[Rfam]
Background:
Shown here is a 126-nucleotide RNA sequence from Anoxynatronum buryatiense, a member of the family "Group II catalytic intron D1-D4-4". Pairs were carried over by alignment from the consensus structure. Rfam describes the family as follows. Group II introns are found in rRNA, tRNA and mRNA of organelles in fungi, plants and protists, and also in mRNA in bacteria. For this family Rfam cites "The ins and outs of group II introns" (Bonen and Vogel, Trends Genet, 2001). Rfam 15.1 lists 840 matches to the family in 506 species. The source organism's lineage runs through Bacteria, Bacillota, Clostridia, Clostridiaceae and Anoxynatronum.
RNA sequence: CAACGGGUGAAAGUCCAGUCUGAGUUAGUAUCAAGAUGUUCAGUAGCUGCUAACAGGCAACUGGUGGAGAAAUCCUAAGAUUAAAGCCCUGUGACAAAGCACCGGUGAAUCGGGCGAGCAACCCAA
Numbered sequence: 001c002a003a004c005g006g007g008u009g010a011a012a013g014u015c016c017a018g019u020c021u022g023a024g025u026u027a028g029u030a031u032c033a034a035g036a037u038g039u040u041c042a043g044u045a046g047c048u049g050c051u052a053a054c055a056g057g058c059a060a061c062u063g064g065u066g067g068a069g070a071a072a073u074c075c076u077a078a079g080a081u082u083a084a085a086g087c088c089c090u091g092u093g094a095c096a097a098a099g100c101a102c103c104g105g106u107g108a109a110u111c112g113g114g115c116g117a118g119c120a121a122c123c124c125a126a
Stems, first nucleotide, its partner, number of pairs: 020043005053092005059082002062079001067074002099115002102113004